[Rfam]
Nucleotides: 101
Base pairs, nucleotide, nucleotide: 019086020085021084022083023082024081025080029049030048031047032046033045034044035043058077059076060074061073062072063071
Number, partner (000 for none) and nucleotide at each position: 001000u002000a003000a004000a005000a006000a007000c008000a009000a010000a011000u012000a013000g014000c015000u016000a017000c018000a019086u020085c021084u022083u023082g024081u025080a026000u027000a028000a029049g030048u031047c032046c033045a034044g035043g036000a037000a038000u039000a040000u041000g042000g043035c044034u045033u046032g047031g048030a049029c050000g051000u052000u053000u054000c055000u056000a057000c058077c059076a060074g061073c062072u063071a064000c065000c066000u067000u068000a069000a070000a071063u072062a073061g074060c075000u076059u077058g078000u079000c080025u081024a082023c083022a084021a085020g086019g087000g088000a089000u090000g091000g092000a093000a094000u095000g096000u097000g098000u099000u100000u101000u

Purine riboswitch aptamer: a 101-nucleotide sequence from Oceanobacillus piezotolerans. Pairs were carried over by alignment from the consensus structure, which is taken from published work. It scores 78 bits against the family's covariance model. NCBI's taxonomy places the organism under Bacteria, Bacillati, Bacillota, Bacilli, Oceanobacillus. Rfam links the family to the GO term purine nucleobase biosynthetic process.